[Rfam]
RNA sequence: UAUACUUAUGUCAAGUGUUUUCAUAUAUACUCGUAAUAAGGUCGAGAGUUUCUACGAGGAUCCGUAAAUUCCUUGCUAUGAAAAACUUGUAAGUAUUC
Numbered sequence: 001u002a003u004a005c006u007u008a009u010g011u012c013a014a015g016u017g018u019u020u021u022c023a024u025a026u027a028u029a030c031u032c033g034u035a036a037u038a039a040g041g042u043c044g045a046g047a048g049u050u051u052c053u054a055c056g057a058g059g060a061u062c063c064g065u066a067a068a069u070u071c072c073u074u075g076c077u078a079u080g081a082a083a084a085a086c087u088u089g090u091a092a093g094u095a096u097u098c
Base pairs, nucleotide, nucleotide: 018084019083020082021081022080023079024078025077030046031045032044033043056074057073058072059071060070
Rfam assigns this 98-nucleotide RNA sequence from Brevinema andersonii to the family "Purine riboswitch aptamer". Pairs were carried over by alignment from the consensus structure, which is taken from published work. Its family is annotated with purine nucleobase biosynthetic process in the Gene Ontology. Riboswitches are metabolite binding domains within certain messenger RNAs that serve as precision sensors for their corresponding targets. Taxonomically the source falls in Brevinema (Bacteria, Pseudomonadati, Spirochaetota, Brevinematales).